[Rfam]
Shown here is an 83-nucleotide RNA from Mycobacterium asiaticum, a member of the family "tRNA". A search with the family's covariance model found it, with a score of 54 bits. Pairs were carried over by alignment from the consensus structure, which is taken from published work. The family's RNA type in Rfam is transfer RNA.

Nucleotides: 083
Base pairs, nucleotide, nucleotide: 001082002081003080004079005078006077007076010025011024012023027043028042029041030040031039059075061073062072063071
Number, partner (000 for none) and nucleotide at each position: 001082g002081c003080g004079g005078g006077c007076g008000u009000g010025g011024c012023g013000a014000a015000a016000u017000g018000g019000c020000a021000g022000a023012c024011g025010c026000g027043c028042c029041g030040g031039c032000u033000u034000u035000a036000g037000g038000u039031g040030c041029c042028g043027g044000u045000g046000c047000u048000c049000g050000a051000a052000a053000g054000a055000g056000c057000g058000u059075g060000u061073g062072g063071g064000u065000u066000c067000g068000a069000g070000u071063c072062c073061c074000u075059c076007c077006g078005c079004c080003c081002g082001c083000a